[Rfam]
RNA: Stem loopII regulatory element in POLB
Organism: Microcebus murinus
RNA sequence: AGUUCAAUAGUAGUCUUCAUUUAUUUCUUAAUCUUUGCUAUGUAAAGAUCUUUGGUGCUUGUAAAUGAUUAUUGUUUCUUCUUUAUCCU
Numbered sequence: 001a002g003u004u005c006a007a008u009a010g011u012a013g014u015c016u017u018c019a020u021u022u023a024u025u026u027c028u029u030a031a032u033c034u035u036u037g038c039u040a041u042g043u044a045a046a047g048a049u050c051u052u053u054g055g056u057g058c059u060u061g062u063a064a065a066u067g068a069u070u071a072u073u074g075u076u077u078c079u080u081c082u083u084u085a086u087c088c089u
Base pairs, nucleotide, nucleotide: 009082010081012079016064017063025055026054031049032048033047034046035045036044037043038042